[Rfam]
RNA sequence: ACACGGGAAAGGAGGUGGUCCAGCUUUGAGUAGCUACAGGACACGUGAGGUGGCUGCCCGCUAAGCGGCUGUCAUCGACUGCACUUCUGUCGAUACCAAAGGUUCGACUGGAGCGUCGAGGCCGUGUGUCAGCGGCUUGGCGAAUCCACGGGAGCCACCCGAACCCCAGGGGUUGUCCGGUUUUGUCCAACCGGCCCGCACACCCGUGCGGAACCCUGGGGUUUGUUCCGU
Numbered sequence: 001a002c003a004c005g006g007g008a009a010a011g012g013a014g015g016u017g018g019u020c021c022a023g024c025u026u027u028g029a030g031u032a033g034c035u036a037c038a039g040g041a042c043a044c045g046u047g048a049g050g051u052g053g054c055u056g057c058c059c060g061c062u063a064a065g066c067g068g069c070u071g072u073c074a075u076c077g078a079c080u081g082c083a084c085u086u087c088u089g090u091c092g093a094u095a096c097c098a099a100a101g102g103u104u105c106g107a108c109u110g111g112a113g114c115g116u117c118g119a120g121g122c123c124g125u126g127u128g129u130c131a132g133c134g135g136c137u138u139g140g141c142g143a144a145u146c147c148a149c150g151g152g153a154g155c156c157a158c159c160c161g162a163a164c165c166c167c168a169g170g171g172g173u174u175g176u177c178c179g180g181u182u183u184u185g186u187c188c189a190a191c192c193g194g195c196c197c198g199c200a201c202a203c204c205c206g207u208g209c210g211g212a213a214c215c216c217u218g219g220g221g222u223u224u225g226u227u228c229c230g231u
Stems, first nucleotide, its partner, number of pairs: 014058006059142005065136002068133004073128003160225012177194006
Actinobacteria sRNA Ms_IGR-5: a 231-nucleotide RNA sequence from Catellatospora sp. IY07-71. The pairing is the family consensus, mapped onto this sequence. Lineage of the source: Bacteria > Bacillati > Actinomycetota > Actinomycetes > Catellatospora.